[Rfam]
Nucleotides: 091
Stems, first nucleotide, its partner, number of pairs: 006086008020034004036071003039067002043065003049059002
Number, partner (000 for none) and nucleotide at each position: 001000g002000c003000c004000a005000a006086g007085c008084g009083c010082g011081u012080g013079g014000g015000a016000g017000a018000g019000a020034a021033c022032g023031g024000g025000c026000c027000c028000g029000g030000c031023c032022c033021g034020u035000c036071g037070c038069c039067g040066a041000a042000g043065g044064c045063g046000c047000a048000a049059u050058u051000u052000c053000c054000g055000c056000c057000c058050g059049g060000a061000a062000a063045c064044g065043c066040u067039c068000a069038g070037g071036c072000a073000g074000a075000a076000g077000g078000a079013c080012c081011g082010c083009g084008c085007g086006c087000c088000c089000g090000u091000c
Shown here is a 91-nucleotide RNA sequence from Salinisphaera orenii, a member of the family "Glycine riboswitch aptamer". Gene Ontology term of the family: glycine biosynthetic process. The pairing is the family consensus, mapped onto this sequence.